[Rfam]
RNA sequence: GUACCUUCGAUAACGAAUAAACAUCUCUUAAAAGUAUGUGUAAAACGCUGCAUGAUACAAACGAAGGUAAAAAUUUGACUCCCUUUAGUAGUGGACCCGUACGUUAAUCGUGCGGGUCGUUUUU
Numbered sequence: 001g002u003a004c005c006u007u008c009g010a011u012a013a014c015g016a017a018u019a020a021a022c023a024u025c026u027c028u029u030a031a032a033a034g035u036a037u038g039u040g041u042a043a044a045a046c047g048c049u050g051c052a053u054g055a056u057a058c059a060a061a062c063g064a065a066g067g068u069a070a071a072a073a074u075u076u077g078a079c080u081c082c083c084u085u086u087a088g089u090a091g092u093g094g095a096c097c098c099g100u101a102c103g104u105u106a107a108u109c110g111u112g113c114g115g116g117u118c119g120u121u122u123u124u
Stems, first nucleotide, its partner, number of pairs: 002069008021039004025034002040051002082094002084091002095117009
A member of the RNA family "RNA Staph. aureus H" from Staphylococcus aureus, 124 nucleotides long. The family's RNA type in Rfam is small RNA. Pairs were carried over by alignment from the consensus structure, which is taken from published work. Rfam's curators put it in the seed alignment. On this family, see Geissmann et al., Nucleic Acids Res 2009: "A search for small noncoding RNAs in Staphylococcus aureus reveals a conserved sequence motif for regulation".